[Rfam]
RNA: Nuclear RNase P
Organism: Andalucia godoyi
RNA sequence: AGAGUACCCGAAAACCAAGGGGAAAUAAAAAGUGAAGCUACCACCCCGUCGCUUGGGAAGGUCUGAGGCGUCGGUCCUGUUCUCGACGAGACGGGACGCAAAACAGCUACUUUACUCUCUAGGUGGGAGACACUCGCAAGAGUGUGCUGGGGAACCAGAAACGAACCCGGGUCGACUGUCACAGGAAGACCCGGGAUGAAACGGCCCCUGGGACGCCCAUAGCUGUGAGUUUAAUGCGGAGGGUCCGUGGAAAAACCGUGUGCAACGUUCGUUCUCCACGGAAAACUCGAUUCAGACUACUCUUGCUCCUCU
Numbered sequence: 001a002g003a004g005u006a007c008c009c010g011a012a013a014a015c016c017a018a019g020g021g022g023a024a025a026u027a028a029a030a031a032g033u034g035a036a037g038c039u040a041c042c043a044c045c046c047c048g049u050c051g052c053u054u055g056g057g058a059a060g061g062u063c064u065g066a067g068g069c070g071u072c073g074g075u076c077c078u079g080u081u082c083u084c085g086a087c088g089a090g091a092c093g094g095g096a097c098g099c100a101a102a103a104c105a106g107c108u109a110c111u112u113u114a115c116u117c118u119c120u121a122g123g124u125g126g127g128a129g130a131c132a133c134u135c136g137c138a139a140g141a142g143u144g145u146g147c148u149g150g151g152g153a154a155c156c157a158g159a160a161a162c163g164a165a166c167c168c169g170g171g172u173c174g175a176c177u178g179u180c181a182c183a184g185g186a187a188g189a190c191c192c193g194g195g196a197u198g199a200a201a202c203g204g205c206c207c208c209u210g211g212g213a214c215g216c217c218c219a220u221a222g223c224u225g226u227g228a229g230u231u232u233a234a235u236g237c238g239g240a241g242g243g244u245c246c247g248u249g250g251a252a253a254a255a256c257c258g259u260g261u262g263c264a265a266c267g268u269u270c271g272u273u274c275u276c277c278a279c280g281g282a283a284a285a286c287u288c289g290a291u292u293c294a295g296a297c298u299a300c301u302c303u304u305g306c307u308c309c310u311c312u
Stems, first nucleotide, its partner, number of pairs: 001312004009305003015241001019237001022050001032038001063295005069215004115129005130145006147210001149208004166195005244282008